[Rfam]
Background: This 198-nucleotide sequence from Pisciglobus halotolerans belongs to the Rfam family "Group II catalytic intron D1-D4-5". Rfam's curators write: Group II introns are found in rRNA, tRNA and mRNA of organelles in fungi, plants and protists, and also in mRNA in bacteria. The match comes from Rfam's covariance-model search (146 bits). NCBI's taxonomy places the organism under Bacteria, Bacilli, Lactobacillales, Carnobacteriaceae, Pisciglobus.

RNA sequence: GAGAACUGAUCAAGUAAAAGCUGGAAUGAUGGCGUAACGUCCUGAAACAGCUUCCCUGAUCCUCCGAUAUGCGAUUGAAAGGUAAAAUUCAAACGUAUAAAGCUCGGUAAAGUCAGCUGAGAGAAGCCGUAAAUAAAGAAUACUUCUUUAUACGAAAAAGAUCUAGGUCUCGCUUCCUAUAGGCUGGGGGUCUCAUAA
Numbered sequence: 001g002a003g004a005a006c007u008g009a010u011c012a013a014g015u016a017a018a019a020g021c022u023g024g025a026a027u028g029a030u031g032g033c034g035u036a037a038c039g040u041c042c043u044g045a046a047a048c049a050g051c052u053u054c055c056c057u058g059a060u061c062c063u064c065c066g067a068u069a070u071g072c073g074a075u076u077g078a079a080a081g082g083u084a085a086a087a088u089u090c091a092a093a094c095g096u097a098u099a100a101a102g103c104u105c106g107g108u109a110a111a112g113u114c115a116g117c118u119g120a121g122a123g124a125a126g127c128c129g130u131a132a133a134u135a136a137a138g139a140a141u142a143c144u145u146c147u148u149u150a151u152a153c154g155a156a157a158a159a160g161a162u163c164u165a166g167g168u169c170u171c172g173c174u175u176c177c178u179a180u181a182g183g184c185u186g187g188g189g190g191u192c193u194c195a196u197a198a
Stems, first nucleotide, its partner, number of pairs: 018053006031043002034040001054190004064107004068099006075092005114186005123176005128154003136149003159170004